Annotation
A member of the RNA family "nhaA-II RNA" from Brevundimonas sp., 82 nucleotides long. NCBI's taxonomy places the organism under Bacteria, Pseudomonadati, Alphaproteobacteria, Caulobacterales, Brevundimonas.

[Rfam]
Nucleotides: 082
Stems, first nucleotide, its partner, number of pairs: 005026007028054006034045004056079006
Number, partner (000 for none) and nucleotide at each position: 001000a002000u003000c004000a005026g006025g007024u008023c009022c010021g011020g012000g013000c014000g015000u016000c017000g018000u019000c020011c021010c022009g023008g024007a025006u026005c027000a028054g029053g030052c031051u032050g033049g034045c035044g036043c037042c038000a039000u040000c041000a042037g043036g044035c045034g046000a047000a048000u049033c050032c051031g052030g053029u054028c055000c056079g057078g058077c059076g060075u061074c062000c063000g064000u065000c066000g067000a068000u069000a070000a071000c072000c073000u074061g075060a076059c077058g078057c079056c080000a081000c082000g